This 83-nucleotide sequence from Bacillus sp. FJAT-50079 belongs to the Rfam family "ZMP/ZTP riboswitch aptamer (pfl RNA motif)".
The match comes from Rfam's covariance-model search (55 bits).
The organism belongs to Bacillus, within Bacteria.

RNA sequence: AAUUCUGUAUGUGACUGGCGAAUAAGUGGAAUGAACCACGGUGGAGCAUACAGUUAAAUAGACCGUUCGCCUGGGGAAGUAUG
Numbered sequence: 001a002a003u004u005c006u007g008u009a010u011g012u013g014a015c016u017g018g019c020g021a022a023u024a025a026g027u028g029g030a031a032u033g034a035a036c037c038a039c040g041g042u043g044g045a046g047c048a049u050a051c052a053g054u055u056a057a058a059u060a061g062a063c064c065g066u067u068c069g070c071c072u073g074g075g076g077a078a079g080u081a082u083g
Stems, first nucleotide, its partner, number of pairs: 005053008015043001017071005026039004063075002